The record is a 111-nucleotide RNA sequence from Kryptolebias marmoratus, which matches "Small nucleolar RNA SNORD67" in Rfam. It is annotated as a C/D-box small nucleolar RNA. Pairs were carried over by alignment from the consensus structure. The organism belongs to Kryptolebias, within Eukaryota. Gene Ontology terms of the family: nucleolus and RNA processing. The match comes from Rfam's covariance-model search (91 bits).
RNA sequence: GGUGAGAGUGAUGAGUUGCACAUCAGCUGGGGUGUCUGGUGCAGUGGCAUUAGCACUCCAGUCUGAAUCAUGAGAAGACAAAUAUUGUGCACAGGGGCCAUCUGACUCAAC
Numbered sequence: 001g002g003u004g005a006g007a008g009u010g011a012u013g014a015g016u017u018g019c020a021c022a023u024c025a026g027c028u029g030g031g032g033u034g035u036c037u038g039g040u041g042c043a044g045u046g047g048c049a050u051u052a053g054c055a056c057u058c059c060a061g062u063c064u065g066a067a068u069c070a071u072g073a074g075a076a077g078a079c080a081a082a083u084a085u086u087g088u089g090c091a092c093a094g095g096g097g098c099c100a101u102c103u104g105a106c107u108c109a110a111c
Stems, first nucleotide, its partner, number of pairs: 006108003023066004027061004032056003038051005